[Rfam]
RNA sequence: GAUGAGAAGUCUCCGGAAUCGCUGUACUGCAUUGAUGAUUCCCUCGAACCCUAGUCUGUCUGAU
Numbered sequence: 001g002a003u004g005a006g007a008a009g010u011c012u013c014c015g016g017a018a019u020c021g022c023u024g025u026a027c028u029g030c031a032u033u034g035a036u037g038a039u040u041c042c043c044u045c046g047a048a049c050c051c052u053a054g055u056c057u058g059u060c061u062g063a064u
Stems, first nucleotide, its partner, number of pairs: 002064002005061002
A member of the RNA family "Small nucleolar RNA MBII-202", 64 nucleotides long. Rfam's curators put it in the seed alignment. The literature on the family includes a 2001 paper in EMBO J by Huttenhofer et al., "RNomics: an experimental approach that identifies 201 candidates for novel, small, non-messenger RNAs in mouse".